[Rfam]
RNA sequence: UUUUAGCCUAGAUGGAAGCGGUAUCCUUUUUCUGUCCGCCGCGGCGGACAGAAAAAGAUAUAGCGGACAGCUGGUCCCGAA
Numbered sequence: 001u002u003u004u005a006g007c008c009u010a011g012a013u014g015g016a017a018g019c020g021g022u023a024u025c026c027u028u029u030u031u032c033u034g035u036c037c038g039c040c041g042c043g044g045c046g047g048a049c050a051g052a053a054a055a056a057g058a059u060a061u062a063g064c065g066g067a068c069a070g071c072u073g074g075u076c077c078c079g080a081a
Stems, first nucleotide, its partner, number of pairs: 009073003013069002018064002023059003029054011
RNA: Flavo-1 RNA
Organism: Flavobacterium sp. KMS